[Rfam]
RNA sequence: AGGAGGAACAACCACAGUGUCAGCGGCCAGCUCUGGAGCCCUGGAUUCAGUUCCUGCAGUAACUACGGAGCUCUCAGUCUGCAGGGGCCUGGAUGCUCUGGGAAUGG
Number, nucleotide and partner (000 for none) at each position: 001a000002g099003g098004a097005g096006g000007a094008a000009c091010a090011a000012c087013c086014a000015c000016a000017g000018u000019g079020u000021c077022a000023g075024c000025g074026g073027c000028c000029a072030g071031c070032u069033c068034u067035g066036g000037a064038g000039c000040c000041c059042u058043g057044g000045a000046u000047u000048c000049a000050g000051u000052u000053c000054c000055u000056g000057c043058a042059g041060u000061a000062a000063c000064u037065a000066c035067g034068g033069a032070g031071c030072u029073c026074u025075c023076a000077g021078u000079c019080u000081g000082c000083a000084g000085g000086g013087g012088c000089c000090u010091g009092g000093a000094u007095g000096c005097u004098c003099u002100g000101g000102g000103a000104a000105u000106g000107g000
RNA: mir-8834 microRNA precursor family
Organism: Vulpes vulpes